Shown here is a 77-nucleotide RNA sequence from Pristionchus pacificus, a member of the family "mir-71 microRNA precursor family". The literature on the family includes a 2009 paper in BMC Genomics by Li et al., "Direct sequencing and expression analysis of a large number of miRNAs in Aedes aegypti and a multi-species survey of novel mosquito miRNAs". Pairs were carried over by alignment from the consensus structure, which was predicted with RNAalifold.
RNA sequence: CGAAGGUGAAAGACCUGUUGGUAGUGAGACGAUGAAAUUUAAUCCUUUCGUAUCACUACCCAGGCUUUCGCCCUUGC
Numbered sequence: 001c002g003a004a005g006g007u008g009a010a011a012g013a014c015c016u017g018u019u020g021g022u023a024g025u026g027a028g029a030c031g032a033u034g035a036a037a038u039u040u041a042a043u044c045c046u047u048u049c050g051u052a053u054c055a056c057u058a059c060c061c062a063g064g065c066u067u068u069c070g071c072c073c074u075u076g077c
Base pairs, nucleotide, nucleotide: 008069009068010067011066012065014063017061020060021059023057024056025055026054027053029051030050031049